[Rfam]
Shown here is a 54-nucleotide RNA sequence from Pinguicula ehlersiae, a member of the family "Plastid-psbA-3 3UTR RNA".
The base pairs follow the family's consensus structure, which was predicted with LocARNA.
It is annotated as a cis-regulatory element.
Plastid psbA-3 is a non-coding RNA (ncRNA) present in plastids.
For this family Rfam cites "Retrograde signaling in plants: A critical review focusing on the GUN pathway and beyond" (Richter et al., Plant Commun, 2023).
RNA sequence: AAAGGAGCAAUAACUUCUUCUUGUUCUAGCAAGGGGGGUUAUUGCUCCUUAUAU
Numbered sequence: 001a002a003a004g005g006a007g008c009a010a011u012a013a014c015u016u017c018u019u020c021u022u023g024u025u026c027u028a029g030c031a032a033g034g035g036g037g038g039u040u041a042u043u044g045c046u047c048c049u050u051a052u053a054u
Stems, first nucleotide, its partner, number of pairs: 002050013018035006
Dot-bracket structure: .(((((((((((((...((((((......))))))..)))))))))))))....